[Rfam]
RNA sequence: UUUUAAAUUUUUAUUCGCCCUUGCGUGUCCAUUGUUGCAAGGAGCGAUUUGGAGAAAAUAAA
Numbered sequence: 001u002u003u004u005a006a007a008u009u010u011u012u013a014u015u016c017g018c019c020c021u022u023g024c025g026u027g028u029c030c031a032u033u034g035u036u037g038c039a040a041g042g043a044g045c046g047a048u049u050u051g052g053a054g055a056a057a058a059u060a061a062a
Stems, first nucleotide, its partner, number of pairs: 003060001008055003012051002015047004019042007
RNA: mir-BART2 microRNA precursor family